Rfam assigns this 75-nucleotide sequence from Agrilus planipennis to the family "mir-932 microRNA precursor family". The family's consensus secondary structure was predicted with RNAalifold. The match comes from Rfam's covariance-model search (76 bits).
RNA sequence: CAUCUCUUCAAUUCCGUAGUGCAUUGCAGUGUUUGAUUUAGCAAUCUGCAAGCAGUGCGGAAGUGAGGAGAUGCU
Number, nucleotide and partner (000 for none) at each position: 001c000002a000003u000004c000005u000006c068007u067008u066009c065010a064011a000012u000013u061014c060015c059016g058017u057018a000019g000020u054021g053022c052023a000024u051025u050026g049027c048028a047029g000030u000031g000032u000033u000034u000035g000036a000037u000038u000039u000040a000041g000042c000043a000044a000045u000046c000047u028048g027049c026050a025051a024052g022053c021054a020055g000056u000057g017058c016059g015060g014061a013062a000063g000064u010065g009066a008067g007068g006069a000070g000071a000072u000073g000074c000075u000